RNA sequence: GGUUCGGGAGCACGCCCGUGGGAAGGCGCGCAAGUAUUGAACCUCACCUCCCUUGUCCAAGUGGCAUGCCACCCGGCCCCGGGGUGACAUG
Numbered sequence: 001g002g003u004u005c006g007g008g009a010g011c012a013c014g015c016c017c018g019u020g021g022g023a024a025g026g027c028g029c030g031c032a033a034g035u036a037u038u039g040a041a042c043c044u045c046a047c048c049u050c051c052c053u054u055g056u057c058c059a060a061g062u063g064g065c066a067u068g069c070c071a072c073c074c075g076g077c078c079c080c081g082g083g084g085u086g087a088c089a090u091g
Stems, first nucleotide, its partner, number of pairs: 001043005010031002013028004065091004070086005
Description:
This 91-nucleotide sequence from Litoreibacter arenae belongs to the Rfam family "Rhodo-rpoB RNA". Rfam's curators put it in the seed alignment. Rfam classes the family as a cis-regulatory element.